[Rfam]
RNA sequence: GCCCUUGUGAAAACCAUUUGAAUCAAGUUAUGUGUAGUGAUUCAAAUGGUUUUCAACGGC
Dot-bracket structure: .......((((((((((((((((((............)))))))))))))))))).....
RNA: Plastid-ccsA-ndhD-2 3UTR RNA